[Rfam]
A member of the RNA family "Plastid-psbA-1 3UTR RNA" from Azima tetracantha, 128 nucleotides long. Plastid psbA-1 is a non-coding RNA (ncRNA) present in plastids. It was identified in inverted repeat sequences in the 3 prime untranslate region (3UTR) of photosystem II quinone-binding protein (psbA). Rfam's curators put it in the seed alignment.
RNA sequence: UUGAGGUUCCAUCUAUAAAUGGAUAAGACUUUAUUAGUCUUACUCUUACUAUAGGCUAAUUUUUUUAAAAUAAAGGAGCAAUACCAACCUCUUUUUUUAUCGAGAAGGUUGAUUAUUGCUCCUUUUUU
Numbered sequence: 001u002u003g004a005g006g007u008u009c010c011a012u013c014u015a016u017a018a019a020u021g022g023a024u025a026a027g028a029c030u031u032u033a034u035u036a037g038u039c040u041u042a043c044u045c046u047u048a049c050u051a052u053a054g055g056c057u058a059a060u061u062u063u064u065u066u067a068a069a070a071u072a073a074a075g076g077a078g079c080a081a082u083a084c085c086a087a088c089c090u091c092u093u094u095u096u097u098u099a100u101c102g103a104g105a106a107g108g109u110u111g112a113u114u115a116u117u118g119c120u121c122c123u124u125u126u127u128u
Base pairs, nucleotide, nucleotide: 008023009022010021011020012019072125073124074123075122076121077120078119079118080117081116082115083114086110087109090105091104092103093102
A reference for the family is Richter et al. (2023), "Retrograde signaling in plants: A critical review focusing on the GUN pathway and beyond", Plant Commun. The family's consensus secondary structure was predicted with LocARNA.